[Rfam]
RNA sequence: AUGAGUUCUUAGCUUUGAGAACUGAAUUCCAUAGGUUGUUAGAGGUUAGACCUAUGGUGCUUAGUUCCAUAGCUUGGAUCCCACUG
Dot-bracket structure: .......((.(((.....(((((((.......((((.............)))).......)))))))....))).)).........
Shown here is an 86-nucleotide RNA sequence from Xenopus tropicalis, a member of the family "mir-146 microRNA precursor family".
The organism belongs to Silurana, within Eukaryota.
The match comes from Rfam's covariance-model search (69 bits).
Rfam links the family to the GO terms miRNA-mediated post-transcriptional gene silencing and RISC complex.
The base pairs follow the family's consensus structure, which was predicted with WAR.